[Rfam]
RNA sequence: AAGUGAGGACGACCUCCCCCUGAUGGGAAAUUUGUCCGGGACGGCCCGG
Numbered sequence: 001a002a003g004u005g006a007g008g009a010c011g012a013c014c015u016c017c018c019c020c021u022g023a024u025g026g027g028a029a030a031u032u033u034g035u036c037c038g039g040g041a042c043g044g045c046c047c048g049g
Stems, first nucleotide, its partner, number of pairs: 003018001005016004036049005
Description
This 49-nucleotide RNA from Polystyrenella longa belongs to the Rfam family "Guanidine-II riboswitch aptamer (mini-ykkC)". Taxonomically the source falls in Polystyrenella (Bacteria, Pseudomonadati, Planctomycetia, Planctomycetales). A reference for the family is Weinberg et al. (2007), "Identification of 22 candidate structured RNAs in bacteria using the CMfinder comparative genomics pipeline", Nucleic Acids Res. Rfam's curators write: Simpler in structure and has fewer highly conserved nucleotide positions than the ykkC-yxkD leader. Despite this each of its two stem-loop structures directly bind free guanidine. Therefore, mini-ykkC RNA motif represents a distinct class of guanidine-sensing RNAs. Its crystal structure was also determined.